Description
A member of the RNA family "Ascomycota telomerase RNA" from Fusarium albosuccineum, 386 nucleotides of a longer RNA. Its family is annotated with telomerase activity, telomere maintenance via telomerase and telomerase catalytic core complex in the Gene Ontology. It is annotated as a non-coding RNA gene. The pairing is the family consensus, mapped onto this sequence. A reference for the family is Qi et al. (2013), "The common ancestral core of vertebrate and fungal telomerase RNAs", Nucleic Acids Res.

[Rfam]
RNA sequence: AAUCAAACAGAAGGUGCCUUCUUUGCUGCGUCGGGGAGUUUCCGGACUGCGUUCUGUUAUGACGACUUGUGGCGGAGUCAUGUUGACGAAGGUAUUGAACCAUGCUGGAAUUGACAGAUCGCGAACAGGUUUCAGCUUUGCAUUCACUCCAUCUCUUAUGGCGAUACUGAAGGCUAGGGUCCGACGCAGCACCGGGACCCAUCUCGAGUUGGAGUCAAAGUUUCGUGCUUGUCUGGUGUUGUGGAGGCCCAGCUCUAAGUUGAGUCUGACGAGUCCGAGUUGCACUGUCGAACCUGGGUUGUACCGUUGGAUCUCUGGACAGGCCCCGUUGGUUGAGGUAGUCCUGGUUGUCCUCUCGCCAGAAAUGGUGCGGAGGACAACCCCCC
Number, nucleotide and partner (000 for none) at each position: 001a000002a000003u000004c000005a000006a000007a000008c000009a000010g000011a000012a000013g000014g000015u000016g000017c000018c000019u000020u000021c000022u000023u000024u000025g000026c000027u000028g000029c000030g000031u000032c000033g000034g000035g000036g000037a000038g000039u000040u000041u000042c000043c000044g000045g000046a000047c000048u000049g000050c000051g000052u000053u000054c000055u000056g000057u000058u000059a000060u000061g000062a000063c000064g000065a000066c000067u000068u000069g000070u000071g000072g000073c000074g000075g000076a000077g000078u000079c000080a000081u000082g000083u000084u000085g000086a000087c000088g000089a000090a000091g000092g000093u000094a000095u000096u000097g000098a000099a000100c000101c000102a000103u000104g000105c000106u000107g000108g000109a000110a000111u000112u000113g000114a000115c000116a000117g000118a000119u000120c000121g000122c000123g000124a000125a000126c000127a000128g000129g000130u000131u000132u000133c000134a000135g000136c000137u000138u000139u000140g000141c000142a000143u000144u000145c000146a000147c000148u000149c000150c000151a000152u000153c000154u000155c000156u000157u000158a000159u000160g000161g000162c000163g000164a000165u000166a000167c000168u000169g000170a000171a000172g000173g000174c000175u000176a000177g000178g000179g000180u000181c000182c000183g000184a000185c000186g000187c000188a000189g000190c000191a000192c000193c000194g000195g000196g216197a215198c214199c212200c211201a210202u000203c000204u000205c000206g000207a000208g000209u000210u201211g200212g199213a000214g198215u197216c196217a000218a230219a229220g228221u227222u000223u000224c000225g000226u000227g221228c220229u219230u218231g000232u000233c000234u000235g000236g000237u000238g000239u000240u000241g000242u000243g000244g000245a000246g000247g000248c000249c000250c000251a000252g000253c000254u000255c000256u000257a000258a000259g000260u000261u000262g000263a000264g000265u000266c000267u000268g000269a000270c000271g000272a000273g000274u000275c000276c000277g000278a000279g000280u000281u000282g000283c000284a000285c000286u000287g000288u000289c000290g000291a000292a000293c000294c000295u000296g000297g000298g000299u000300u000301g000302u000303a000304c000305c000306g000307u000308u000309g000310g000311a000312u000313c000314u000315c000316u000317g000318g000319a000320c000321a000322g000323g000324c000325c000326c000327c000328g000329u000330u000331g000332g000333u000334u000335g000336a000337g000338g000339u000340a000341g000342u000343c000344c000345u000346g000347g000348u000349u000350g000351u000352c000353c000354u000355c000356u000357c000358g000359c000360c000361a000362g000363a000364a000365a000366u000367g000368g000369u000370g000371c000372g000373g000374a000375g000376g000377a000378c000379a000380a000381c000382c000383c000384c000385c000386c000